Rfam assigns this 140-nucleotide RNA from Nonomuraea endophytica to the family "c-di-AMP riboswitch aptamer (ydaO/yuaA leader)". NCBI's taxonomy places the organism under Bacteria, Actinomycetes, Streptosporangiales, Streptosporangiaceae, Nonomuraea. This family represents a conserved RNA structure found upstream of the ydaO and yuaA genes in Bacillus subtilis and related genes in other bacteria.
RNA sequence: GGCCGGCUGGCGCCGAAUCCCGUACCCGCGGGAACCGGGGAACCACAUGUUCCUUUGGGGUGAAUCCGACGUACGCGUCGGUAGGGCAUCUCCACGCCCGAACCCGUCAGCUAACCCGGUAGGCGCGAUGGAGAGGACUG
Numbered sequence: 001g002g003c004c005g006g007c008u009g010g011c012g013c014c015g016a017a018u019c020c021c022g023u024a025c026c027c028g029c030g031g032g033a034a035c036c037g038g039g040g041a042a043c044c045a046c047a048u049g050u051u052c053c054u055u056u057g058g059g060g061u062g063a064a065u066c067c068g069a070c071g072u073a074c075g076c077g078u079c080g081g082u083a084g085g086g087c088a089u090c091u092c093c094a095c096g097c098c099c100g101a102a103c104c105c106g107u108c109a110g111c112u113a114a115c116c117c118g119g120u121a122g123g124c125g126c127g128a129u130g131g132a133g134a135g136g137a138c139u140g
Stems, first nucleotide, its partner, number of pairs: 011125004018033005034120006044057002058105003066081004084099004